The family of this 216-nucleotide sequence from Danio rerio is "Small nucleolar RNA U3".
Lineage of the source: Eukaryota > Opisthokonta > Otomorpha > Danionidae > Danio.
Its family is annotated with nucleolus and RNA processing in the Gene Ontology.
On this family, see Zwieb, Nucleic Acids Res 1997: "The uRNA database".
From the family's description: Small nucleolar RNAs (snoRNAs) are involved in the processing and modification of rRNA in the nucleolus. There are two main classes of snoRNAs: the box C/D class, and the box H/ACA class. U3 snoRNA is a member of the box C/D class. Indeed, the box C/D element is a subset of the six short sequence elements found in all U3 snoRNAs, namely boxes A, A', B, C, C', and D. The U3 snoRNA secondary structure is characterised by a small 5' domain (with boxes A and A'), and a larger 3' domain (with boxes B, C, C', and D), the two domains being linked by a single-stranded hinge. Boxes B and C form the B/C motif, which appears to be exclusive to U3 snoRNAs, and boxes C' and D form the C'/D motif. The latter is functionally similar to the C/D motifs found in other snoRNAs. The 5' domain and the hinge region act as a pre-rRNA-binding domain. The 3' domain has conserved protein-binding sites. Both the box B/C and box C'/D motifs are sufficient for nuclear retention of U3 snoRNA. The box C'/D motif is also necessary for nucleolar localisation, stability and hyper-methylation of U3 snoRNA. Both box B/C and C'/D motifs are involved in specific protein interactions and are necessary for the rRNA processing functions of U3 snoRNA.

[Rfam]
RNA sequence: AAGACUAUACUUUCAGGGAUCAUUUCUAUAGUUUCUCACUAGGAAAUGUGUUUCGAAAGUGUUGUGUUUCCCAAACCGCGAUGAAGAGUGUUGAUGCUCUGUUCUAUGCGUAAAUCUGGUGUAGAGAAAUGGUUUGUCUCAUAUGCUCUACACUGUUGAUGACCGCUCCUGACUGAUUAAAGCAGUUUUGGAGGAAAAGAGUAUGAACUGAGCGGC
Numbered sequence: 001a002a003g004a005c006u007a008u009a010c011u012u013u014c015a016g017g018g019a020u021c022a023u024u025u026c027u028a029u030a031g032u033u034u035c036u037c038a039c040u041a042g043g044a045a046a047u048g049u050g051u052u053u054c055g056a057a058a059g060u061g062u063u064g065u066g067u068u069u070c071c072c073a074a075a076c077c078g079c080g081a082u083g084a085a086g087a088g089u090g091u092u093g094a095u096g097c098u099c100u101g102u103u104c105u106a107u108g109c110g111u112a113a114a115u116c117u118g119g120u121g122u123a124g125a126g127a128a129a130u131g132g133u134u135u136g137u138c139u140c141a142u143a144u145g146c147u148c149u150a151c152a153c154u155g156u157u158g159a160u161g162a163c164c165g166c167u168c169c170u171g172a173c174u175g176a177u178u179a180a181a182g183c184a185g186u187u188u189u190g191g192a193g194g195a196a197a198a199g200a201g202u203a204u205g206a207a208c209u210g211a212g213c214g215g216c
Stems, first nucleotide, its partner, number of pairs: 002040002007034001009032003015027004048065003054061001076215004094204007102196004108166003118154004124148003129142004169190001171187005177181001